Small nucleolar RNA SNORD11B: an 85-nucleotide RNA sequence from Sorex araneus. Pairs were carried over by alignment from the consensus structure, which was predicted with WAR. Taxonomically the source falls in Sorex (Eukaryota, Vertebrata, Eutheria, Boreoeutheria). The family's RNA type in Rfam is C/D-box small nucleolar RNA. Rfam's curators put it in the seed alignment. On this family, see Yang et al., Nucleic Acids Res 2006: "snoSeeker: an advanced computational package for screening of guide and orphan snoRNA genes in the human genome".
RNA sequence: UGAUGGCUAUGAUGAUUUUAAAAUUUACACUUGCCUGAUAAGUAAAUAUGAGGGUGUUCAGUCACUACCUCAUCUGAUGCCAUCU
Numbered sequence: 001u002g003a004u005g006g007c008u009a010u011g012a013u014g015a016u017u018u019u020a021a022a023a024u025u026u027a028c029a030c031u032u033g034c035c036u037g038a039u040a041a042g043u044a045a046a047u048a049u050g051a052g053g054g055u056g057u058u059c060a061g062u063c064a065c066u067a068c069c070u071c072a073u074c075u076g077a078u079g080c081c082a083u084c085u
Stems, first nucleotide, its partner, number of pairs: 002084006